RNA sequence: AACCUUACUAUAAUAGUAAUUUAGCUUAGUAUAAGAGGAACUACUAAUUUAGAUAAUUAGUUUUUAUAGCUAUUUAACUAGGUAGUGCUAUAAAGCUACUAUCUACUAGAUAAUAGCUAAAUGCCUCUAAGUUAGAAUCUAUACUAGAAUAUAGUAAUACUACCCGCAUAUAUAGAUAGAUAAGAAUAGGCUCUAGCUUAGUAUCUUAGUAGGUAAUCUCUUUAUAGCGUAGGAAGCACGCUGUGGUAUUUUAUGUAUUAUAAUUUUAAUAUAAGUAGGGUUAAAUCCUUUAUAAAUAACUUAGCUAUGUAAAAUAGUCCUAUAAGUAGUAGAGUAGCCUUAUUAUUAUAAUCUACUAAGGGUAAGCUAUCCUUUGCCUUAAUUUCC
Numbered sequence: 001a002a003c004c005u006u007a008c009u010a011u012a013a014u015a016g017u018a019a020u021u022u023a024g025c026u027u028a029g030u031a032u033a034a035g036a037g038g039a040a041c042u043a044c045u046a047a048u049u050u051a052g053a054u055a056a057u058u059a060g061u062u063u064u065u066a067u068a069g070c071u072a073u074u075u076a077a078c079u080a081g082g083u084a085g086u087g088c089u090a091u092a093a094a095g096c097u098a099c100u101a102u103c104u105a106c107u108a109g110a111u112a113a114u115a116g117c118u119a120a121a122u123g124c125c126u127c128u129a130a131g132u133u134a135g136a137a138u139c140u141a142u143a144c145u146a147g148a149a150u151a152u153a154g155u156a157a158u159a160c161u162a163c164c165c166g167c168a169u170a171u172a173u174a175g176a177u178a179g180a181u182a183a184g185a186a187u188a189g190g191c192u193c194u195a196g197c198u199u200a201g202u203a204u205c206u207u208a209g210u211a212g213g214u215a216a217u218c219u220c221u222u223u224a225u226a227g228c229g230u231a232g233g234a235a236g237c238a239c240g241c242u243g244u245g246g247u248a249u250u251u252u253a254u255g256u257a258u259u260a261u262a263a264u265u266u267u268a269a270u271a272u273a274a275g276u277a278g279g280g281u282u283a284a285a286u287c288c289u290u291u292a293u294a295a296a297u298a299a300c301u302u303a304g305c306u307a308u309g310u311a312a313a314a315u316a317g318u319c320c321u322a323u324a325a326g327u328a329g330u331a332g333a334g335u336a337g338c339c340u341u342a343u344u345a346u347u348a349u350a351a352u353c354u355a356c357u358a359a360g361g362g363u364a365a366g367c368u369a370u371c372c373u374u375u376g377c378c379u380u381a382a383u384u385u386c387c
Base pairs, nucleotide, nucleotide: 005157006156007155008154009153010152011151014146015145016144017143019049021047022046023045024044050105051104052103053102054101058098059097060096065092066091067090068089069088070085071084072083073082074081075080107141108140109139114134115133116132117131118130164279165278166276167275283385284384285383286382288304289303309377310376311375312374313373315369316368317367319362320361326356327355328354329353331352334349335348336347337346

This 387-nucleotide part of an RNA from Epichloe typhina belongs to the Rfam family "Eukaryotic large subunit ribosomal RNA". The base pairs follow the family's consensus structure, which is taken from published work. NCBI's taxonomy places the organism under Eukaryota, Sordariomycetes, Hypocreomycetidae, Epichloe, Epichloe typhina.